[Rfam]
RNA: Guanidine-I riboswitch aptamer
Organism: Sideroxydans lithotrophicus
RNA sequence: UUACAGAUGAACUAGGGUUCCGGCAGUCGAUCAAUACAACUGCGUCUGGUCCAAGAGUUCUCGGUCUUGUUGCAUUUAACAAGACUCCACGGAGGGAUAAAAGCCCGGGAGGU
Numbered sequence: 001u002u003a004c005a006g007a008u009g010a011a012c013u014a015g016g017g018u019u020c021c022g023g024c025a026g027u028c029g030a031u032c033a034a035u036a037c038a039a040c041u042g043c044g045u046c047u048g049g050u051c052c053a054a055g056a057g058u059u060c061u062c063g064g065u066c067u068u069g070u071u072g073c074a075u076u077u078a079a080c081a082a083g084a085c086u087c088c089a090c091g092g093a094g095g096g097a098u099a100a101a102a103g104c105c106c107g108g109g110a111g112g113u
Base pairs, nucleotide, nucleotide: 009060010059011058012057015052016051020049021048022046023043024042025041026040027039063086064085065084066083067082068081069080070079088108090111094106095105096104